Small nucleolar RNA Z118/Z121/Z120: a 107-nucleotide sequence from Leersia perrieri.
The literature on the family includes a 2003 paper in Nucleic Acids Res by Chen et al., "The high diversity of snoRNAs in plants: identification and comparative study of 120 snoRNA genes from Oryza sativa".
Rfam links the family to the GO terms RNA processing and nucleolus.
RNA sequence: UGUUUGCUGUGAUGAUUCCUAAAGGACGGUAUCUGAGUAAGGAACCACUUGAAAGAGUGUGCCUUGCAUGAUUACAUCCACAACUGAUCAGAGAUUCUGAGCAAACA
Numbered sequence: 001u002g003u004u005u006g007c008u009g010u011g012a013u014g015a016u017u018c019c020u021a022a023a024g025g026a027c028g029g030u031a032u033c034u035g036a037g038u039a040a041g042g043a044a045c046c047a048c049u050u051g052a053a054a055g056a057g058u059g060u061g062c063c064u065u066g067c068a069u070g071a072u073u074a075c076a077u078c079c080a081c082a083a084c085u086g087a088u089c090a091g092a093g094a095u096u097c098u099g100a101g102c103a104a105a106c107a
Stems, first nucleotide, its partner, number of pairs: 001107007037067006